[Rfam]
RNA sequence: CGUUGGUUCCCACGCAACAAUAAACUGUCGACCCGGUCAGGCCCGGAAGGGAGCAGCCGAAACAGUGGACUUGUGUGCCGAGGUGUAGCUGGCGAGA
Numbered sequence: 001c002g003u004u005g006g007u008u009c010c011c012a013c014g015c016a017a018c019a020a021u022a023a024a025c026u027g028u029c030g031a032c033c034c035g036g037u038c039a040g041g042c043c044c045g046g047a048a049g050g051g052a053g054c055a056g057c058c059g060a061a062a063c064a065g066u067g068g069a070c071u072u073g074u075g076u077g078c079c080g081a082g083g084u085g086u087a088g089c090u091g092g093c094g095a096g097a
Stems, first nucleotide, its partner, number of pairs: 004091005010083002013080002015075001017074004024066005034059004042051003
The record is a 97-nucleotide RNA sequence from Alkalimarinus sediminis, which matches "Bacterial small signal recognition particle RNA" in Rfam. It is annotated as a non-coding RNA gene. It scores 66 bits against the family's covariance model. The organism belongs to Alkalimarinus, within Bacteria. The signal recognition particle (SRP) is a universally conserved ribonucleoprotein involved in the co-translational targeting of proteins to membranes.